[Rfam]
A member of the RNA family "RAGATH-10 RNA", 92 nucleotides long.

RNA sequence: GAAACCUCAUCUUGCUCACGCGCCAUCCGGGCGCCAAGAGCGGUGUUUUCCCGAGGGAAAGCACGGGCACUCCGCCUGGGUGAGGAGAGAGU
Numbered sequence: 001g002a003a004a005c006c007u008c009a010u011c012u013u014g015c016u017c018a019c020g021c022g023c024c025a026u027c028c029g030g031g032c033g034c035c036a037a038g039a040g041c042g043g044u045g046u047u048u049u050c051c052c053g054a055g056g057g058a059a060a061g062c063a064c065g066g067g068c069a070c071u072c073c074g075c076c077u078g079g080g081u082g083a084g085g086a087g088a089g090a091g092u
Stems, first nucleotide, its partner, number of pairs: 005085008015040003020034005043064009065077004